About this RNA
A member of the RNA family "MIR2619 microRNA precursor family" from Medicago truncatula, 169 nucleotides long.

RNA sequence: AAGCAGCCCCCUAUGUUUUGAUUCUUUGGCAGUUUUGGACCCCCAGUCCAUUGUUGACUCGGUCAACGCUGACGUGGCACCCUAAGUGAGGUGCCACGUGUCAAUUUUUAUUAUUUUUUUUGCCUUGGGGUCCAAAACUGCCAAAGAAUCAAAACAUAGGGGGUUGUUU
Number, nucleotide and partner (000 for none) at each position: 001a169002a168003g000004c166005a165006g164007c163008c162009c000010c000011c000012u158013a157014u156015g155016u154017u153018u152019u151020g150021a149022u148023u147024c146025u145026u144027u143028g142029g141030c140031a139032g138033u137034u136035u135036u134037g133038g132039a131040c130041c129042c128043c127044c000045a125046g000047u000048c000049c000050a000051u000052u000053g000054u000055u000056g000057a000058c000059u000060c000061g000062g000063u000064c000065a000066a000067c000068g000069c000070u000071g000072a099073c098074g000075u096076g095077g094078c093079a092080c091081c090082c000083u000084a000085a000086g000087u000088g000089a000090g081091g080092u079093g078094c077095c076096a075097c000098g073099u072100g000101u000102c000103a000104a000105u000106u000107u000108u000109u000110a000111u000112u000113a000114u000115u000116u000117u000118u000119u000120u000121u000122g000123c000124c000125u045126u000127g043128g042129g041130g040131u039132c038133c037134a036135a035136a034137a033138c032139u031140g030141c029142c028143a027144a026145a025146g024147a023148a022149u021150c020151a019152a018153a017154a016155c015156a014157u013158a012159g000160g000161g000162g008163g007164u006165u005166g004167u000168u002169u001
It scores 118 bits against the family's covariance model. Its family is annotated with RISC complex and miRNA-mediated post-transcriptional gene silencing in the Gene Ontology.